RNA sequence: AGAUGGGGUAGAGGCGCGGAAGUGAUCAGUAGUUAUAGGGCCAGUGAACCUUUUGCCUAUAAUGAAAGGCAGUUCUGCCGAAGUCCUAUUUUAAGGGUUCAAUGAAUAGGGCUGGUUCUGUACAGAAUAUGUGCAGGACUGUCAUUGUGAGAUUGGAAUAUUAUUUCAUAAUGGAGUACUAUCCUCAUU
Numbered sequence: 001a002g003a004u005g006g007g008g009u010a011g012a013g014g015c016g017c018g019g020a021a022g023u024g025a026u027c028a029g030u031a032g033u034u035a036u037a038g039g040g041c042c043a044g045u046g047a048a049c050c051u052u053u054u055g056c057c058u059a060u061a062a063u064g065a066a067a068g069g070c071a072g073u074u075c076u077g078c079c080g081a082a083g084u085c086c087u088a089u090u091u092u093a094a095g096g097g098u099u100c101a102a103u104g105a106a107u108a109g110g111g112c113u114g115g116u117u118c119u120g121u122a123c124a125g126a127a128u129a130u131g132u133g134c135a136g137g138a139c140u141g142u143c144a145u146u147g148u149g150a151g152a153u154u155g156g157a158a159u160a161u162u163a164u165u166u167c168a169u170a171a172u173g174g175a176g177u178a179c180u181a182u183c184c185u186c187a188u189u
Stems, first nucleotide, its partner, number of pairs: 006184006016078006023071002032063008082113010114140011142174012

The record is a 189-nucleotide RNA from Iocasia frigidifontis, which matches "Lysine riboswitch aptamer" in Rfam.
For this family Rfam cites "The L box regulon: Lysine sensing by leader RNAs of bacterial lysine biosynthesis genes" (Grundy et al., Proc Natl Acad Sci U S A, 2003).
A search with the family's covariance model found it, with a score of 110 bits.
Gene Ontology term of the family: lysine biosynthetic process.